[Rfam]
RNA sequence: CUGUCAGAAUAUGUAUGUCUAUUUUCUAAUGGACUAGGUGAUUCACACCAGUAUCUCGGACAGCGGUUCGAUUCCGCUCAGCUCCAUAAAUGGGGCUGCAAUGGUUUCGACGGGGUAUCAGGAGAGUGACUGAAGCCUGCUCGGUCAGAGCAAAACCAUAACUGCUAACAACAUCGUUAGUUUCUCCCGUCAAACAGCCCCUGUUGCUGCUUGAUCUUUUAGGAGAUGGGGUCAGGUCAUCCUUAUUACCCAAUUGAUCCAUGGAGCCUGGAAGGGCUC
Numbered sequence: 001c002u003g004u005c006a007g008a009a010u011a012u013g014u015a016u017g018u019c020u021a022u023u024u025u026c027u028a029a030u031g032g033a034c035u036a037g038g039u040g041a042u043u044c045a046c047a048c049c050a051g052u053a054u055c056u057c058g059g060a061c062a063g064c065g066g067u068u069c070g071a072u073u074c075c076g077c078u079c080a081g082c083u084c085c086a087u088a089a090a091u092g093g094g095g096c097u098g099c100a101a102u103g104g105u106u107u108c109g110a111c112g113g114g115g116u117a118u119c120a121g122g123a124g125a126g127u128g129a130c131u132g133a134a135g136c137c138u139g140c141u142c143g144g145u146c147a148g149a150g151c152a153a154a155a156c157c158a159u160a161a162c163u164g165c166u167a168a169c170a171a172c173a174u175c176g177u178u179a180g181u182u183u184c185u186c187c188c189g190u191c192a193a194a195c196a197g198c199c200c201c202u203g204u205u206g207c208u209g210c211u212u213g214a215u216c217u218u219u220u221a222g223g224a225g226a227u228g229g230g231g232u233c234a235g236g237u238c239a240u241c242c243u244u245a246u247u248a249c250c251c252a253a254u255u256g257a258u259c260c261a262u263g264g265a266g267c268c269u270g271g272a273a274g275g276g277c278u279c
Stems, first nucleotide, its partner, number of pairs: 017034007037131003041127004048122002051118008062078005079098007138152005193212002196208003222251002225247007264279006
Description
The record is a 279-nucleotide RNA sequence from Prochlorococcus marinus, which matches "Cyanobacteria transfer-messenger RNA" in Rfam. Rfam's curators put it in the seed alignment. Bacterial tmRNA, also known as 10Sa RNA or SsrA, is named for its dual tRNA and mRNA-like properties. The base pairs follow the family's consensus structure, which is taken from published work. Taxonomically the source falls in Prochlorococcus marinus (Bacteria, Bacillati, Prochlorococcaceae, Prochlorococcus).